[Rfam]
RNA sequence: GAGAUAGCCAGACACACGUGAGUUGCAAGUGCUGGAAUCUUAGUCUCACAC
Numbered sequence: 001g002a003g004a005u006a007g008c009c010a011g012a013c014a015c016a017c018g019u020g021a022g023u024u025g026c027a028a029g030u031g032c033u034g035g036a037a038u039c040u041u042a043g044u045c046u047c048a049c050a051c
Stems, first nucleotide, its partner, number of pairs: 001040001003038001008035002011033001012030002018049005
RNA: Exoribonuclease-resistant RNA (xrRNA) plant-infecting virus (class 3)
Organism: Polerovirus MAYMV